[Rfam]
RNA sequence: CUCGUCCGCCCCGUGGACGCUCUGACCAGCGGGCCACCGACCCGGUUACCCUGACGGCGUCGCCGCGGGGACUGUUCCACGGGUGACGCCAAGCCGACAGCCGUCGCACCUCGAGGGAGCCCUUUCAUG
Number, nucleotide and partner (000 for none) at each position: 001c000002u000003c000004g000005u000006c000007c000008g000009c000010c000011c000012c000013g000014u000015g000016g000017a000018c000019g000020c000021u000022c000023u000024g000025a000026c000027c000028a000029g000030c000031g000032g000033g000034c000035c000036a000037c000038c000039g000040a000041c000042c000043c000044g000045g000046u000047u000048a000049c000050c000051c000052u000053g000054a000055c000056g090057g089058c088059g087060u000061c085062g084063c083064c082065g000066c000067g000068g000069g000070g000071a000072c000073u000074g000075u000076u000077c000078c000079a000080c000081g000082g064083g063084u062085g061086a000087c059088g058089c057090c056091a000092a000093g107094c106095c000096g105097a104098c103099a000100g000101c000102c000103g098104u097105c096106g094107c093108a000109c000110c000111u000112c000113g000114a000115g000116g000117g000118a000119g000120c000121c000122c000123u000124u000125u000126c000127a000128u000129g000

Streptomyces-metH RNA: a 129-nucleotide RNA from Streptomyces resistomycificus.
It scores 78 bits against the family's covariance model.
It is annotated as a small RNA.
Taxonomically the source falls in Streptomyces (Bacteria, Bacillati, Actinomycetes, Streptomycetaceae).
The family's consensus secondary structure is taken from published work.